[Rfam]
Notes
The family of this 161-nucleotide RNA from Tetrahymena thermophila is "U1 spliceosomal RNA". Lineage of the source: Eukaryota > Alveolata > Ciliophora > Tetrahymenidae > Tetrahymena. Rfam's curators put it in the seed alignment. By type it is a spliceosomal small nuclear RNA. Rfam links the family to the GO terms pre-mRNA 5'-splice site binding, mRNA 5'-splice site recognition and U1 snRNP. The family's consensus secondary structure is taken from published work. The literature on the family includes a 1997 paper in Nucleic Acids Res by Zwieb, "The uRNA database".
RNA sequence: UAAAUUACAAUGUUGUAGUUAGCUAUAUAUCAAAAAAUAUAGCAACUAAGGUGGAGCAAGUCAUUGUACUAAAGAUGUUUGUAAUACCUUGAUGUUCCCGCUGGGAGCAAUAACAACAAAAUUUCUGAUUGGAAAUAGUCAUUAAACUAACUGGCUAUUUC
Numbered sequence: 001u002a003a004a005u006u007a008c009a010a011u012g013u014u015g016u017a018g019u020u021a022g023c024u025a026u027a028u029a030u031c032a033a034a035a036a037a038u039a040u041a042g043c044a045a046c047u048a049a050g051g052u053g054g055a056g057c058a059a060g061u062c063a064u065u066g067u068a069c070u071a072a073a074g075a076u077g078u079u080u081g082u083a084a085u086a087c088c089u090u091g092a093u094g095u096u097c098c099c100g101c102u103g104g105g106a107g108c109a110a111u112a113a114c115a116a117c118a119a120a121a122u123u124u125c126u127g128a129u130u131g132g133a134a135a136u137a138g139u140c141a142u143u144a145a146a147c148u149a150a151c152u153g154g155c156u157a158u159u160u161c
Stems, first nucleotide, its partner, number of pairs: 012117004016048005023042005049089004055082001058079002061075002092111001093109001095106001097104002133160005140153002143150001